[Rfam]
RNA: Alphaproteobacterial ar14
Nucleotides: 124
Stems, first nucleotide, its partner, number of pairs: 007038003011034007045078010087119011
Number, partner (000 for none) and nucleotide at each position: 001000c002000a003000c004000g005000a006000u007038c008037a009036a010000a011034g012033a013032g014031a015030u016029a017028g018000a019000c020000c021000u022000c023000c024000u025000c026000c027000c028017c029016u030015g031014u032013c033012u034011c035000u036009u037008u038007g039000u040000c041000g042000u043000g044000u045078u046077c047076g048075g049074g050073c051072g052071g053070g054069a055000c056000c057000u058000c059000c060000u061000c062000c063000u064000c065000c066000c067000a068000a069054u070053c071052c072051c073050g074049u075048c076047c077046g078045a079000c080000c081000c082000u083000u084000g085000c086000g087119u088118c089117g090116c091115c092114c093113g094112c095111c096110g097109g098000u099000c100000c101000u102000c103000c104000u105000c106000c107000c108000u109097c110096c111095g112094g113093c114092g115091g116090g117089c118088g119087a120000u121000c122000g123000c124000a